[Rfam]
RNA sequence: GGCAAUAAACGGGCGGUACAAUAAGCCUAUCGGACCCGGGGGCGGUACCCGGCGCCUCCACCAGGAACACCGCGCAGGACGCAAGACGCGCGAGUGCGGUGCUGCUGAUGGGGGCGAAACAGGAUCGACGAGGGUGUAAAAACCGUACUUUUGCCCGGCAUGAUACCACCGUUAUCGGGUCAAACUUGUAGUUGCAAACGACAACUAUGCAGAGGCACGUCUCGCUGCCUAA
Numbered sequence: 001g002g003c004a005a006u007a008a009a010c011g012g013g014c015g016g017u018a019c020a021a022u023a024a025g026c027c028u029a030u031c032g033g034a035c036c037c038g039g040g041g042g043c044g045g046u047a048c049c050c051g052g053c054g055c056c057u058c059c060a061c062c063a064g065g066a067a068c069a070c071c072g073c074g075c076a077g078g079a080c081g082c083a084a085g086a087c088g089c090g091c092g093a094g095u096g097c098g099g100u101g102c103u104g105c106u107g108a109u110g111g112g113g114g115c116g117a118a119a120c121a122g123g124a125u126c127g128a129c130g131a132g133g134g135u136g137u138a139a140a141a142a143c144c145g146u147a148c149u150u151u152u153g154c155c156c157g158g159c160a161u162g163a164u165a166c167c168a169c170c171g172u173u174a175u176c177g178g179g180u181c182a183a184a185c186u187u188g189u190a191g192u193u194g195c196a197a198a199c200g201a202c203a204a205c206u207a208u209g210c211a212g213a214g215g216c217a218c219g220u221c222u223c224g225c226u227g228c229c230u231a232a
Stems, first nucleotide, its partner, number of pairs: 001155005014145004026134003030131003036052005053116007156171003
Dot-bracket structure: (((((........((((........(((.(((...(((((.......)))))(((((((..................................................)))))))............)))))).......)))).....)))))(((..........))).............................................................
permuted transfer-messenger RNA: a 232-nucleotide RNA from Roseitalea porphyridii. The base pairs follow the family's consensus structure, which is taken from published work. The family's RNA type in Rfam is non-coding RNA gene.